[Rfam]
RNA: Selenocysteine insertion sequence 1
RNA sequence: CGCACGUCUGUGAGGGCCUCUCAGUAAACCAGCUCUGGGAUGAGAGGCCUGAUGUCCCCCUUGUGCG
Number, nucleotide and partner (000 for none) at each position: 001c067002g066003c065004a064005c063006g000007u000008c000009u000010g000011u000012g000013a000014g000015g049016g048017c047018c046019u045020c044021u043022c042023a041024g000025u000026a000027a000028a000029c000030c037031a036032g000033c000034u000035c000036u031037g030038g000039g000040a000041u023042g022043a021044g020045a019046g018047g017048c016049c015050u000051g000052a000053u000054g000055u000056c000057c000058c000059c000060c000061u000062u000063g005064u004065g003066c002067g001